Overview: This 94-nucleotide RNA from Spirochaeta isovalerica belongs to the Rfam family "Glycine riboswitch aptamer".
RNA sequence: CUACACAUCCCUGGAGAGAGGAAUCCUCUGAGAUUCCCAUCGAAGAAGCAACCCUCAGGGGGAAUCUUUCAGAUAAAAGGACAGGGCACAAAAG
Number, nucleotide and partner (000 for none) at each position: 001c000002u000003a000004c000005a000006c000007a000008u000009c086010c085011c084012u083013g082014g000015a000016g000017a000018g000019a000020g037021g036022a035023a034024u000025c000026c000027u000028c000029u000030g000031a000032g000033a000034u023035u022036c021037c020038c000039a074040u073041c072042g070043a069044a000045g000046a068047a067048g066049c000050a000051a000052c061053c060054c000055u000056c000057a000058g000059g000060g053061g052062g000063a000064a000065u000066c048067u047068u046069u043070c042071a000072g041073a040074u039075a000076a000077a000078a000079g000080g000081a000082c013083a012084g011085g010086g009087c000088a000089c000090a000091a000092a000093a000094g000